[Rfam]
RNA: Mason-Pfizer monkey virus packaging signal
RNA sequence: UGGCACCCAAAGUGGGGCCUGGAUACUGGGGGAAAACGUGAGGGACAUGACGAAAGAAGAAGGGGUGCGCACCUGCUCAAAUAGUUCGGAAACAUCGUGGUAGCCUGCUGUGACCGAGCUGACAGGUAAGUUGGUAGUUCAAUCAUGGGGCAAGAAUUAAGUCAGCAUCAGAAGUAUGUAAUACACUUAAGAGAAGCUUUACAGGCAAGAGGAGUAAAGGUAACAACUGAGGAUUUAUUUCAUUUCUUUGAUUUCAUAAAAGACAUCUGCCCAU
Number, nucleotide and partner (000 for none) at each position: 001u000002g000003g000004c000005a000006c031007c030008c029009a000010a000011a000012g026013u025014g024015g000016g000017g000018c000019c000020u000021g000022g000023a000024u014025a013026c012027u000028g000029g008030g007031g006032g000033a000034a000035a000036a000037c049038g048039u047040g000041a000042g000043g000044g000045a000046c000047a039048u038049g037050a000051c000052g000053a000054a000055a000056g000057a000058a000059g000060a000061a000062g000063g000064g000065g000066u000067g000068c000069g000070c000071a000072c000073c000074u000075g000076c000077u000078c000079a000080a000081a000082u000083a000084g000085u000086u126087c125088g123089g000090a000091a000092a000093c118094a000095u000096c112097g111098u110099g109100g108101u000102a000103g000104c000105c000106u000107g000108c100109u099110g098111u097112g096113a000114c000115c000116g000117a000118g093119c000120u000121g000122a000123c088124a000125g087126g086127u000128a000129a000130g000131u000132u153133g000134g151135u150136a000137g000138u149139u148140c147141a146142a000143u000144c000145a000146u141147g140148g139149g138150g135151c134152a000153a132154g000155a000156a000157u000158u201159a200160a199161g197162u196163c000164a000165g000166c000167a000168u000169c000170a000171g000172a000173a000174g000175u000176a000177u000178g000179u000180a000181a000182u000183a000184c000185a000186c000187u000188u000189a000190a000191g000192a000193g000194a000195a000196g162197c161198u000199u160200u159201a158202c000203a000204g000205g000206c000207a000208a000209g249210a248211g247212g246213a245214g244215u000216a000217a000218a236219g235220g234221u233222a000223a000224c000225a000226a000227c000228u000229g000230a000231g000232g000233a221234u220235u219236u218237a000238u000239u000240u000241c000242a000243u000244u214245u213246c212247u211248u210249u209250g000251a000252u000253u000254u000255c000256a000257u000258a000259a274260a000261a000262g271263a000264c269265a000266u000267c000268u000269g264270c000271c262272c000273a000274u259